[Rfam]
RNA sequence: GUACCGGAUAGAGGUUGCGUGAUUCAUCAGUAACUUAUCGGAUGCAGCAGGUGCAGAAGAAGAUAAGCAAAAGGGGAGAACGCCGAAAGAGGAUCAUUCCUGUGAGGAUUCUCUUGGGUAUACAUUUAAGAGAUGUAUGACUGUCAUCUUCAUAGCAAGAUGGUGCGCUAUCGUAUAA
Number, nucleotide and partner (000 for none) at each position: 001g000002u000003a000004c000005c000006g000007g172008a171009u170010a169011g168012a000013g000014g000015u000016u000017g083018c082019g081020u080021g000022a000023u077024u076025c075026a000027u000028c000029a000030g000031u000032a000033a000034c067035u066036u065037a064038u063039c062040g000041g000042a000043u000044g000045c000046a000047g000048c000049a000050g000051g000052u000053g000054c000055a000056g000057a000058a000059g000060a000061a000062g039063a038064u037065a036066a035067g034068c000069a000070a000071a000072a000073g000074g000075g025076g024077a023078g000079a000080a020081c019082g018083c017084c000085g000086a000087a115088a114089g113090a112091g111092g110093a109094u108095c107096a000097u105098u104099c000100c000101u000102g000103u000104g098105a097106g000107g095108a094109u093110u092111c091112u090113c089114u088115u087116g142117g141118g000119u139120a138121u137122a136123c135124a134125u133126u132127u000128a000129a000130g000131a000132g126133a125134u124135g123136u122137a121138u120139g119140a000141c117142u116143g000144u163145c162146a161147u160148c159149u158150u157151c000152a000153u000154a000155g000156c000157a150158a149159g148160a147161u146162g145163g144164u000165g000166c000167g000168c011169u010170a009171u008172c007173g000174u000175a000176u000177a000178a000
Shown here is a 178-nucleotide RNA sequence from Roseburia zhanii, a member of the family "Lysine riboswitch aptamer". The source organism's lineage runs through Bacteria, Bacillota, Clostridia, Lachnospirales and Roseburia. A search with the family's covariance model found it, with a score of 114 bits. The family's consensus secondary structure is taken from published work.